[Rfam]
The family of this 61-nucleotide RNA from Panagrellus redivivus is "mir-7939 microRNA precursor family". Lineage of the source: Eukaryota > Chromadorea > Tylenchina > Panagrolaimidae > Panagrellus. The base pairs follow the family's consensus structure, which was predicted with RNAalifold. Gene Ontology terms of the family: RISC complex and miRNA-mediated post-transcriptional gene silencing.

RNA sequence: UAUGGGCCCUCAUGCCGUUCUUGUUAUCACUGAAAUCAUGAAUGUUGUGCAGGCCCGUGGC
Dot-bracket structure: ..((.(((..((((.(((((.((.............)).))))).))))..))).))....